About this RNA: This 168-nucleotide RNA sequence from Triticum turgidum belongs to the Rfam family "MIR2118 microRNA precursor family". Rfam links the family to the GO terms miRNA-mediated post-transcriptional gene silencing and RISC complex. Pairs were carried over by alignment from the consensus structure, which was predicted with RNAalifold. Rfam 15.1 lists 2,377 matches to the family in 45 species.
Nucleotides: 168
Stems, first nucleotide, its partner, number of pairs: 009159004015153003024149003030143002033140004038135001040133011052120003056116001058115005
Number, partner (000 for none) and nucleotide at each position: 001000g002000c003000g004000a005000g006000u007000a008000a009159g010158g011157a012156a013000a014000a015153g016152g017151a018000a019000g020000c021000c022000a023000u024149g025148a026147g027000u028000a029000u030143c031142u032000c033140a034139g035138a036137g037000c038135a039000g040133u041132g042131g043130g044129c045128g046127u047126g048125g049124g050123a051000a052120c053119a054118u055000g056116g057000a058115g059114g060113a061112a062111a063000u064000c065000c066000u067000a068000g069000a070000c071000u072000u073000c074000u075000u076000g077000g078000c079000c080000u081000c082000u083000a084000a085000a086000u087000u088000g089000a090000g091000g092000a093000g094000c095000c096000a097000a098000g099000a100000c101000u102000g103000u104000u105000u106000u107000g108000u109000a110000u111062u112061u113060u114059c115058c116056c117000a118054a119053u120052g121000c122000c123050u124049c125048u126047c127046a128045u129044g130043c131042c132041u133040a134000u135038u136000a137036c138035u139034c140033u141000u142031a143030g144000u145000u146000a147026u148025u149024c150000c151017u152016u153015c154000c155000a156012u157011u158010u159009c160000c161000u162000a163000u164000u165000u166000u167000c168000u